Notes:
Shown here is a 391-nucleotide part of an RNA from Abiotrophia defectiva, a member of the family "Archaeal large subunit ribosomal RNA". A search with the family's covariance model found it, with a score of 1599 bits. A reference for the family is Yusupov et al. (2001), "Crystal structure of the ribosome at 5.5 A resolution", Science. Rfam 15.1 lists 2,955 matches to the family in 1,139 species.
RNA sequence: AUGAGUAGCGAAAGACGGGUGAGAAUCCCGUCCACCGAUAGACUAAGGUUUCCUGGGGAAGGCUCGUCCGCCCAGGGUUAGUCGGGACCUAAGCCGAGGCCGACAGGCGUAGGCGAUGGACAACAGGUAGAGAUUCCUGUACUUGUUAACAAUGUUUGAGCGAUGGAGGGACGCAGGAGGCGACGCCACGCAGACGGAUGGAAGUGUCUGUAGAAGCACGAAGUGGUGGUAUGAGUCAAAUGCUUAUACCUAUAACCGUGACGUGUGACCUGGAGCGAAAUUUAAGUAGCGAAGGUGGCUAAUCAAACUGCCGAGAAAAGCUUCUAGUGAGUUGUUAACAACCCGUACCGCAAACCGACACAGGUAGUCAAGUGGAGAACACUAAGGUGAG
Number, nucleotide and partner (000 for none) at each position: 001a000002u000003g000004a000005g000006u000007a000008g000009c000010g000011a000012a000013a000014g032015a031016c030017g029018g028019g027020u000021g000022a000023g000024a000025a000026u000027c019028c018029c017030g016031u015032c014033c389034a388035c387036c386037g000038a000039u000040a000041g369042a368043c367044u366045a000046a000047g349048g348049u000050u000051u000052c076053c075054u074055g073056g072057g071058g000059a000060a000061g069062g068063c000064u000065c000066g000067u000068c062069c061070g000071c057072c056073c055074a054075g053076g052077g000078u000079u000080a000081g000082u000083c345084g344085g343086g000087a000088c119089c118090u000091a000092a000093g114094c113095c112096g000097a000098g110099g108100c107101c106102g000103a000104c000105a000106g101107g100108c099109g000110u098111a000112g095113g094114c093115g000116a000117u000118g089119g088120a000121c000122a000123a140124c139125a138126g137127g136128u000129a000130g000131a000132g000133a000134u000135u000136c127137c126138u125139g124140u123141a000142c000143u341144u340145g339146u338147u337148a336149a335150c334151a000152a000153u000154g000155u000156u000157u000158g000159a000160g000161c000162g000163a000164u000165g000166g000167a323168g322169g321170g000171a000172c000173g311174c310175a309176g308177g000178a000179g000180g304181c000182g000183a000184c000185g299186c298187c297188a296189c000190g211191c210192a209193g208194a207195c206196g205197g000198a000199u000200g000201g000202a000203a000204g000205u196206g195207u194208c193209u192210g191211u190212a000213g000214a000215a000216g266217c265218a264219c263220g000221a000222a000223g000224u000225g257226g256227u255228g250229g249230u248231a247232u246233g000234a244235g243236u242237c000238a000239a000240a000241u000242g236243c235244u234245u000246a232247u231248a230249c229250c228251u000252a000253u000254a000255a227256c226257c225258g000259u000260g000261a000262c000263g219264u218265g217266u216267g000268a000269c000270c000271u000272g000273g000274a000275g000276c000277g000278a000279a000280a000281u288282u000283u000284a000285a000286g000287u000288a281289g000290c000291g000292a000293a000294g000295g000296u188297g187298g186299c185300u000301a000302a000303u000304c180305a000306a000307a000308c176309u175310g174311c173312c000313g000314a000315g000316a000317a000318a000319a000320g000321c169322u168323u167324c000325u000326a000327g000328u000329g000330a000331g000332u000333u000334g150335u149336u148337a147338a146339c145340a144341a143342c000343c085344c084345g083346u000347a000348c048349c047350g000351c000352a000353a000354a000355c364356c363357g000358a000359c000360a000361c000362a000363g356364g355365u000366a044367g043368u042369c041370a000371a383372g382373u381374g000375g000376a000377g000378a000379a000380c000381a373382c372383u371384a000385a000386g036387g035388u034389g033390a000391g000